Small nucleolar RNA SNORD53/SNORD92: an 80-nucleotide sequence from Eleutherodactylus coqui. Rfam classes the family as a C/D-box small nucleolar RNA. The base pairs follow the family's consensus structure. Rfam links the family to the GO terms nucleolus and RNA processing.
RNA sequence: UGGCGGUGAUGACAUGAAGAGAACGGUUUCGCAUCAUACCUGAAAUGCAGUGAUGUGUCAUCUCUUGGCUGUCUGAGCCG
Numbered sequence: 001u002g003g004c005g006g007u008g009a010u011g012a013c014a015u016g017a018a019g020a021g022a023a024c025g026g027u028u029u030c031g032c033a034u035c036a037u038a039c040c041u042g043a044a045a046u047g048c049a050g051u052g053a054u055g056u057g058u059c060a061u062c063u064c065u066u067g068g069c070u071g072u073c074u075g076a077g078c079c080g
Stems, first nucleotide, its partner, number of pairs: 001080004